[Rfam]
RNA: Small nucleolar RNA R44/J54/Z268 family
RNA sequence: GUUGCAAAUGAUGAGAAACAGAGACAAUUGCAUCUGCAGUGCUCCUUAUUCAUGGGGCUCAAUAGCAUGAUGACUCUGUCUAGGGGAAUCUCUGAUGCUAG
Numbered sequence: 001g002u003u004g005c006a007a008a009u010g011a012u013g014a015g016a017a018a019c020a021g022a023g024a025c026a027a028u029u030g031c032a033u034c035u036g037c038a039g040u041g042c043u044c045c046u047u048a049u050u051c052a053u054g055g056g057g058c059u060c061a062a063u064a065g066c067a068u069g070a071u072g073a074c075u076c077u078g079u080c081u082a083g084g085g086g087a088a089u090c091u092c093u094g095a096u097g098c099u100a101g
Base pairs, nucleotide, nucleotide: 002100004098005097006096